[Rfam]
RNA sequence: AAAUCGGUCCUUCUCAGGACCACCAUUUGUUUCUACAACGAAUAGU
Numbered sequence: 001a002a003a004u005c006g007g008u009c010c011u012u013c014u015c016a017g018g019a020c021c022a023c024c025a026u027u028u029g030u031u032u033c034u035a036c037a038a039c040g041a042a043u044a045g046u
Stems, first nucleotide, its partner, number of pairs: 006021006
Overview: Shown here is a 46-nucleotide RNA sequence from Zophobas morio, a member of the family "Histone 3' UTR stem-loop". A search with the family's covariance model found it, with a score of 36 bits. It is annotated as a cis-regulatory element. The mRNAs of metazoan histone genes lack a poly-A tail. 3' end processing occurs at a site between a highly conserved stem-loop (modelled by this family) and a purine rich region around 20 nts downstream (the histone downstream element, or HDE). The stem-loop is bound by a 31 kDa stem-loop binding protein (SLBP - also termed the histone hairpin binding protein, or HBP). Together with U7 snRNA binding of the HDE, SLBP binding nucleate s the formation of the processing complex. Taxonomically the source falls in Zophobas (Eukaryota, Protostomia, Pterygota, Aparaglossata).